Rfam assigns this 92-nucleotide RNA from Sorghum bicolor to the family "MIR5387 microRNA precursor family". The organism belongs to Sorghum, within Eukaryota. Its family is annotated with RISC complex and miRNA-mediated post-transcriptional gene silencing in the Gene Ontology.

[Rfam]
RNA sequence: UCGUAACACGGGCCGGUGCUAAAGGGUCCUGCCCAACGGCUACUGACAGGUGCUAUCAGGGCAAGACCCUUUAGCACCGACCGUGUUACCAA
Numbered sequence: 001u002c003g004u005a006a007c008a009c010g011g012g013c014c015g016g017u018g019c020u021a022a023a024g025g026g027u028c029c030u031g032c033c034c035a036a037c038g039g040c041u042a043c044u045g046a047c048a049g050g051u052g053c054u055a056u057c058a059g060g061g062c063a064a065g066a067c068c069c070u071u072u073a074g075c076a077c078c079g080a081c082c083g084u085g086u087u088a089c090c091a092a
Stems, first nucleotide, its partner, number of pairs: 003089009014079014029065002032060002036056001043049002